[Rfam]
RNA sequence: GCCCUGUGGUUCCUGGAGAAUGCAAACUUUGUGCAUUACUGCUGGUUUUUGAAAAGGGCAAAAAUUAACUCUGUAUUUGUAUGCAUGGAAUCUGUUAUUUAGCAGCUUCCAUAGCCCGGAUACAGAAACAAAU
Numbered sequence: 001g002c003c004c005u006g007u008g009g010u011u012c013c014u015g016g017a018g019a020a021u022g023c024a025a026a027c028u029u030u031g032u033g034c035a036u037u038a039c040u041g042c043u044g045g046u047u048u049u050u051g052a053a054a055a056g057g058g059c060a061a062a063a064a065u066u067a068a069c070u071c072u073g074u075a076u077u078u079g080u081a082u083g084c085a086u087g088g089a090a091u092c093u094g095u096u097a098u099u100u101a102g103c104a105g106c107u108u109c110c111a112u113a114g115c116c117c118g119g120a121u122a123c124a125g126a127a128a129c130a131a132a133u
Stems, first nucleotide, its partner, number of pairs: 001059004008049001012045002015042001017040001019037005071125001073123006083115002085112004090107001092105005
Shown here is a 133-nucleotide RNA from Acipenser ruthenus, a member of the family "Small nucleolar RNA SNORA84". NCBI's taxonomy places the organism under Eukaryota, Metazoa, Acipenseridae, Acipenserini, Acipenser. Rfam 15.1 lists 757 matches to the family in 629 species. Gene Ontology terms of the family: nucleolus and RNA processing. The base pairs follow the family's consensus structure, which was predicted with WAR.